[Rfam]
Haemophilus regulatory RNA responsive to iron: a 133-nucleotide RNA sequence from Aggregatibacter aphrophilus.
RNA sequence: CCAUCUGUUAAGUAUUGCAGUUGAGAUGAUGGGUAGUCAUUUUGAAGUUUGCAUAGUACUCCAUAACAGGUAGAGUAGAAAGUAAAUUCGUUAGGGUAUUUAAAAGACUGAAGUUUAAACUUCAGUCUUUUUU
Numbered sequence: 001c002c003a004u005c006u007g008u009u010a011a012g013u014a015u016u017g018c019a020g021u022u023g024a025g026a027u028g029a030u031g032g033g034u035a036g037u038c039a040u041u042u043u044g045a046a047g048u049u050u051g052c053a054u055a056g057u058a059c060u061c062c063a064u065a066a067c068a069g070g071u072a073g074a075g076u077a078g079a080a081a082g083u084a085a086a087u088u089c090g091u092u093a094g095g096g097u098a099u100u101u102a103a104a105a106g107a108c109u110g111a112a113g114u115u116u117a118a119a120c121u122u123c124a125g126u127c128u129u130u131u132u133u
Stems, first nucleotide, its partner, number of pairs: 003071006044060001047057003086097004102131012
From the family's description: Involved in iron homeostasis in Haemophilus species. The family's consensus secondary structure was predicted with CMfinder. The sequence is in the family's curated seed alignment. A reference for the family is Santana et al. (2014), "HrrF is the Fur-regulated small RNA in nontypeable Haemophilus influenzae", PLoS One.